[Rfam]
A member of the RNA family "RNase MRP" from Pythium oligandrum, 293 nucleotides long. For this family Rfam cites "Secondary structure of RNase MRP RNA as predicted by phylogenetic comparison" (Schmitt et al., FASEB J, 1993).
RNA sequence: GAACACGAUUUAGAAUUGCGAAGUCAAGUGGAUCGCAGACUCUUCGUCAUGAAGACUCGGUGAUGGCUUGGGGAAAUUCCCCGGACACCAGGGCAGAAAGUGCCAGCGUCGACACGCAGAUCCCCUUGUGAUGAAGCCGCGAAGAGGGCGCCUCGGCGUCGGAGCGUUAUGGUGGAUUUGCGAGGACUGAUCGUCAUGCUAACAGUUAUGCAAUUGGCUCAACGGCAUUAUGGGCGGACGUCGUGCUGCUCGCUGUUUGGAGCUAACCCGACGGGGAUUACUCAAGUCGUGUU
Numbered sequence: 001g002a003a004c005a006c007g008a009u010u011u012a013g014a015a016u017u018g019c020g021a022a023g024u025c026a027a028g029u030g031g032a033u034c035g036c037a038g039a040c041u042c043u044u045c046g047u048c049a050u051g052a053a054g055a056c057u058c059g060g061u062g063a064u065g066g067c068u069u070g071g072g073g074a075a076a077u078u079c080c081c082c083g084g085a086c087a088c089c090a091g092g093g094c095a096g097a098a099a100g101u102g103c104c105a106g107c108g109u110c111g112a113c114a115c116g117c118a119g120a121u122c123c124c125c126u127u128g129u130g131a132u133g134a135a136g137c138c139g140c141g142a143a144g145a146g147g148g149c150g151c152c153u154c155g156g157c158g159u160c161g162g163a164g165c166g167u168u169a170u171g172g173u174g175g176a177u178u179u180g181c182g183a184g185g186a187c188u189g190a191u192c193g194u195c196a197u198g199c200u201a202a203c204a205g206u207u208a209u210g211c212a213a214u215u216g217g218c219u220c221a222a223c224g225g226c227a228u229u230a231u232g233g234g235c236g237g238a239c240g241u242c243g244u245g246c247u248g249c250u251c252g253c254u255g256u257u258u259g260g261a262g263c264u265a266a267c268c269c270g271a272c273g274g275g276g277a278u279u280a281c282u283c284a285a286g287u288c289g290u291g292u293u
Base pairs, nucleotide, nucleotide: 002293003292004291005290006289007288008287009286010285011284014215015214016213017212018211019210024071025070026069027068028067029066041055042054043053044052045051046050075279076278077277079276080275081274082273092104093103094102095101106117107116108115109114119187121186125184126183127182128181129180130179134177138166139165140164147160148159149158150157217263218262219261220260222258
The base pairs follow the family's consensus structure, which is taken from published work. The family is grouped with related families in Rfam's "RNaseP clan". By type it is a ribozyme.